Shown here is a 152-nucleotide RNA from Peribacillus asahii, a member of the family "c-di-AMP riboswitch aptamer (ydaO/yuaA leader)".
From the family's description: This family represents a conserved RNA structure found upstream of the ydaO and yuaA genes in Bacillus subtilis and related genes in other bacteria.
Gene Ontology terms of the family: regulation of gene expression and cyclic-di-AMP binding.

RNA sequence: UUUCUUUAUUCGCUGAAUCCUUUAUGGAACGGGGGAACCAAUCUUGUGGCGGUUUUUUCGUCGCUUGGGGUGAAUCCUUUAUGAAGAAGGUAGGGCUACUCUCAUGGUCCGAAUCCGACAGCUAACUCCGGAAGCGUGAAGAGAGAGGAAGU
Numbered sequence: 001u002u003u004c005u006u007u008a009u010u011c012g013c014u015g016a017a018u019c020c021u022u023u024a025u026g027g028a029a030c031g032g033g034g035g036a037a038c039c040a041a042u043c044u045u046g047u048g049g050c051g052g053u054u055u056u057u058u059c060g061u062c063g064c065u066u067g068g069g070g071u072g073a074a075u076c077c078u079u080u081a082u083g084a085a086g087a088a089g090g091u092a093g094g095g096c097u098a099c100u101c102u103c104a105u106g107g108u109c110c111g112a113a114u115c116c117g118a119c120a121g122c123u124a125a126c127u128c129c130g131g132a133a134g135c136g137u138g139a140a141g142a143g144a145g146a147g148g149a150a151g152u
Stems, first nucleotide, its partner, number of pairs: 011136004018028003030130005039067002068116003076090004093110004